[Rfam]
This 586-nucleotide part of an RNA from Methanothermobacter thermautotrophicus belongs to the Rfam family "Archaeal large subunit ribosomal RNA".
RNA sequence: CUCCCAGUGGGAAGCGAAGACCCCGUAGAGCUUUACUGCAGUCUGCUGUUGGGGCUUGGUCAUGGGUAUGCAGUGUAGGUGGGAGGUGUCGAUGCCAUGGUCGCCAGGCCGUGGUGGAGCCGGUCAUGAGACACCACCUUCCUGUGACUGUGUCUCUAACCCCCCAUUGUGGGGGGGACAUCGGUAGAUGGGCAGUUUGGCUGGGGCGGCACGCGCUUGAAAUGGUAUCAAGCGCGCCCUAAGGUCGGCUCAGGCGGGACAGAGAUCCGCUGUAGAGUGUAAGGGCAUAAGCCGGCUUGACUGUGCUCCUACUAGUAGGGUGUGCAGGUGCGAGAGCAGGGCCUAGCGAACCCCAGAGUCCUCGUCGGUGGGGGCCUGGGAUGACAGAAAAGCUACCUCGGGGAUAACUGGGUGGUCGCAGGCAAGAGCCCAUAUCGACCCUGCGGCUUGCUACUUCGAUGUCGGUUCUUUCCAUCCUGGGUGUGCAGCAGCACCCAAGGGUGGGGUUGUUCGCCCAUUAAAGGGGAACGUGAGCUGGGUUUAGACCGUCGUGAGACAGGUUGGUUGCUAUCUACUGGGAGUGUGU
Dot-bracket structure: ((((((((.(((.((......((((.(((((((.((((...(((((((..(((((.((((((((((.(.........(((((..(((.........(((((......)))))......)))............)))))).)))))))))).)))))...((((((.....)))))).....)))))))....))))..((((.....))).)((((((...........))))))..((....((((((((.((((((.......))))))...))((......))....))))))....((((((.((.........)).)))))).(.(....).).))..........(((((.(.((((.......)))))))))).........)))))..))))))........(((.((((((((...((.......))...)))))))..))))..........(((((((((((..((..(((((......)))))....))..((((.....))))......)))))..)..)))).).....(((((((....))).))))....))..))))))))))).....

Source information:
Its Rfam clan is "LSU clan".